[Rfam]
RNA sequence: CCGAAGAAUCCGUAAAGCUCAGGAGGGAUAGCGCCAUGGAUGAUAAAAUGGGAACUGUAAAGAUGAAGCGCCAAUGGUGCCGUUCAUCUAUUGCGCUAUCUAUCCUGAGUUUUAUGGUUUCUUCCU
Numbered sequence: 001c002c003g004a005a006g007a008a009u010c011c012g013u014a015a016a017g018c019u020c021a022g023g024a025g026g027g028a029u030a031g032c033g034c035c036a037u038g039g040a041u042g043a044u045a046a047a048a049u050g051g052g053a054a055c056u057g058u059a060a061a062g063a064u065g066a067a068g069c070g071c072c073a074a075u076g077g078u079g080c081c082g083u084u085c086a087u088c089u090a091u092u093g094c095g096c097u098a099u100c101u102a103u104c105c106u107g108a109g110u111u112u113u114a115u116g117g118u119u120u121c122u123u124c125c126u
Base pairs, nucleotide, nucleotide: 010117016111017110018109019108020107021106022105023104024103026101027100028099029098030097031096032095033094034093
RNA: MIR390 microRNA precursor family
Organism: Elaeis guineensis